Background: The record is a 138-nucleotide sequence from Callorhinchus milii, which matches "Small nucleolar RNA SNORD94" in Rfam. The base pairs follow the family's consensus structure, which was predicted with RNAalifold. Gene Ontology terms of the family: nucleolus and RNA processing. The organism belongs to Callorhinchus, within Eukaryota. The family's RNA type in Rfam is C/D-box small nucleolar RNA. For this family Rfam cites "Purified box C/D snoRNPs are able to reproduce site-specific 2'-O-methylation of target RNA in vitro" (Galardi et al., Mol Cell Biol, 2002).

RNA sequence: CUGGCAAUGAUGAUUGGCGCAGGGGUACUUACCUCAGCUGGAUAAUGGGAGCUGAGUGCUUGCGUCUUCUGCUCAGCCUACGUGUGGUGGGCUGUUCAAGGAGCGUCUGCACGAGAAAAACGCCUAAAUCUGAGCCAG
Dot-bracket structure: (((((................................................................................................................................)))))